[Rfam]
RNA sequence: CAAGUCCCGAGCCGGUAAGGAUUGGCCAUCCACCGGAACCGAGUGUUGCGUGGUGCGGGAGCGAUCCCGCCUGCGAAGCGUACACAGGGGGCGUGCAGGCCAUGUGAUAGAGCCCCGUAACUGAGUUCGGCGGAGCCGACGUAUUCGGAAGACCGGAAGGCAACAGUUUCGGCAUCGCAACGGCCUGAUGUCGAGACUCCGCCGGGGUCUGAGAGCA
Numbered sequence: 001c002a003a004g005u006c007c008c009g010a011g012c013c014g015g016u017a018a019g020g021a022u023u024g025g026c027c028a029u030c031c032a033c034c035g036g037a038a039c040c041g042a043g044u045g046u047u048g049c050g051u052g053g054u055g056c057g058g059g060a061g062c063g064a065u066c067c068c069g070c071c072u073g074c075g076a077a078g079c080g081u082a083c084a085c086a087g088g089g090g091g092c093g094u095g096c097a098g099g100c101c102a103u104g105u106g107a108u109a110g111a112g113c114c115c116c117g118u119a120a121c122u123g124a125g126u127u128c129g130g131c132g133g134a135g136c137c138g139a140c141g142u143a144u145u146c147g148g149a150a151g152a153c154c155g156g157a158a159g160g161c162a163a164c165a166g167u168u169u170c171g172g173c174a175u176c177g178c179a180a181c182g183g184c185c186u187g188a189u190g191u192c193g194a195g196a197c198u199c200c201g202c203c204g205g206g207g208u209c210u211g212a213g214a215g216c217a
Stems, first nucleotide, its partner, number of pairs: 012036004019031004024185003039088002043085004047080002049075005055070006110209001112208006130202005135161003140155002166197011
RNA: Group II catalytic intron D1-D4-6
Organism: Thiocapsa marina